[Rfam]
RNA sequence: UCGCCCGGCUGCGACUGGCGAGGGUGGACAACCACCGGGGAGCGGCCGUUCUUCCGCGUGAGCGUCGACCGCCUGGGCGCCUCCG
Numbered sequence: 001u002c003g004c005c006c007g008g009c010u011g012c013g014a015c016u017g018g019c020g021a022g023g024g025u026g027g028a029c030a031a032c033c034a035c036c037g038g039g040g041a042g043c044g045g046c047c048g049u050u051c052u053u054c055c056g057c058g059u060g061a062g063c064g065u066c067g068a069c070c071g072c073c074u075g076g077g078c079g080c081c082u083c084c085g
Stems, first nucleotide, its partner, number of pairs: 003051001006048007015039002017073004024035004062080005
A member of the RNA family "ZMP/ZTP riboswitch aptamer (pfl RNA motif)" from Streptomyces fuscichromogenes, 85 nucleotides long. Pairs were carried over by alignment from the consensus structure, which is taken from published work. It scores 56 bits against the family's covariance model.